[Rfam]
RNA sequence: CACACUCGUCUCUCGCUUGUCGGCUUGGGACAUCUACCUCUCACCUACCAGGAAUGGAUGGGUGCGAGAUGACAGCGCGACUUUUGAGGAUGUUUUUGCUCGUGCGCAAUGCCCUCCUUUGCCCGCCCACGGCCCGGAGAGGAACCAAAAACCAAUCCUAGUU
Dot-bracket structure: .......((..((.(((....)))...)))).....((((.(.(.((..(....)...)))..).)))..).................((((((((((.............((((((.......((.....))..)))).))...)))))))..)))......
Rfam assigns this 163-nucleotide part of an RNA from Pleurostoma richardsiae to the family "Ascomycota telomerase RNA". The literature on the family includes a 2013 paper in Nucleic Acids Res by Qi et al., "The common ancestral core of vertebrate and fungal telomerase RNAs".